[Rfam]
RNA sequence: AAAAGGAGGAACCAAUAUGACGGAGUCAUAUUUUAGGAUGGUUCCGACGAUCUGCCGCCGAGCGAUAGCGAGGGGCGAUACUUAUA
Numbered sequence: 001a002a003a004a005g006g007a008g009g010a011a012c013c014a015a016u017a018u019g020a021c022g023g024a025g026u027c028a029u030a031u032u033u034u035a036g037g038a039u040g041g042u043u044c045c046g047a048c049g050a051u052c053u054g055c056c057g058c059c060g061a062g063c064g065a066u067a068g069c070g071a072g073g074g075g076c077g078a079u080a081c082u083u084a085u086a
Base pairs, nucleotide, nucleotide: 008045009044010043011042012041013040015031016030017029018028019027020026054076055075056074058073059072062069063068
RNA: GA-cis RNA